Source information: Rfam assigns this 129-nucleotide RNA from Corynebacterium halotolerans to the family "atpB RNA".
RNA sequence: CUGUCACCGCCUCGCUGAUGUGCGACGGAGUCCGUGGUGGUGCCAGAGAGUUUUCAGACGUCCAUCGCACCGUGCGGAACUGACAAUCCGCCCGGCCCUAACACGGGAGAGAACGCUGAGCGUUACAAC
Number, nucleotide and partner (000 for none) at each position: 001c046002u045003g044004u000005c042006a041007c040008c039009g038010c037011c036012u000013c000014g000015c000016u000017g000018a000019u000020g000021u000022g000023c000024g000025a000026c000027g000028g000029a000030g000031u000032c000033c000034g000035u000036g011037g010038u009039g008040g007041u006042g005043c000044c003045a002046g001047a000048g000049a000050g000051u000052u000053u000054u000055c000056a000057g000058a000059c000060g000061u000062c000063c000064a000065u000066c000067g000068c000069a000070c095071c094072g093073u000074g091075c090076g089077g088078a087079a000080c000081u000082g000083a000084c000085a000086a000087u078088c077089c076090g075091c074092c000093c072094g071095g070096c000097c000098c000099u000100a000101a000102c000103a000104c000105g000106g000107g000108a000109g000110a000111g000112a000113a000114c000115g000116c000117u000118g000119a000120g000121c000122g000123u000124u000125a000126c000127a000128a000129c000